RNA sequence: CUUUUACUUCAUGAAGGUGCUCCUGUAAACAUGCUUUGUCUGUGGGGAGCAUCUGAUGCCGUGCAAAAG
Number, nucleotide and partner (000 for none) at each position: 001c069002u068003u067004u066005u065006a000007c000008u000009u000010c000011a000012u000013g000014a000015a000016g053017g052018u051019g050020c049021u048022c047023c046024u045025g000026u000027a000028a000029a000030c000031a041032u000033g039034c000035u000036u000037u000038g000039u033040c000041u031042g000043u000044g000045g024046g023047g022048a021049g020050c019051a018052u017053c016054u000055g000056a000057u000058g000059c000060c000061g000062u000063g000064c000065a005066a004067a003068a002069g001
Background
The record is a 69-nucleotide RNA sequence from Onychostoma macrolepis, which matches "Selenocysteine insertion sequence 1" in Rfam. The family's RNA type in Rfam is cis-regulatory element. For this family Rfam cites "A novel RNA structural motif in the selenocysteine insertion element of eukaryotic selenoprotein mRNAs" (Walczak et al., RNA, 1996). It scores 35 bits against the family's covariance model. Rfam describes the family as follows. The incorporation of selenocysteine into a protein sequence is directed by an in-frame UGA codon (usually a stop codon) within the coding region of the mRNA. Selenoprotein mRNAs contain a conserved secondary structure in the 3' UTR that is required for the distinction of UGA stop from UGA selenocysteine. Pairs were carried over by alignment from the consensus structure, which is taken from published work.